Record summary:
Rfam assigns this 81-nucleotide RNA from Myotis myotis to the family "mir-574 microRNA precursor family". On this family, see Nielsen et al., Anim Genet 2010: "MicroRNA identity and abundance in porcine skeletal muscles determined by deep sequencing". The family has 6 seed sequences and 4,084 matches in Rfam 15.1. Taxonomically the source falls in Myotis (Eukaryota, Euteleostomi, Tetrapoda, Vespertilionidae). The family is grouped with related families in Rfam's "mir-574 microRNA precursor clan". The base pairs follow the family's consensus structure, which was predicted with RNAalifold.

[Rfam]
RNA sequence: AGGCCCCAAGAGAGAGGCAGGAUCUGAUCCACAGCCUCCGUGGCAGCUGUUGAUCAGCUGCUGACUCUCUCUUUUUCUCUG
Numbered sequence: 001a002g003g004c005c006c007c008a009a010g011a012g013a014g015a016g017g018c019a020g021g022a023u024c025u026g027a028u029c030c031a032c033a034g035c036c037u038c039c040g041u042g043g044c045a046g047c048u049g050u051u052g053a054u055c056a057g058c059u060g061c062u063g064a065c066u067c068u069c070u071c072u073u074u075u076u077c078u079c080u081g
Stems, first nucleotide, its partner, number of pairs: 008073009018063003022059001024057006032049004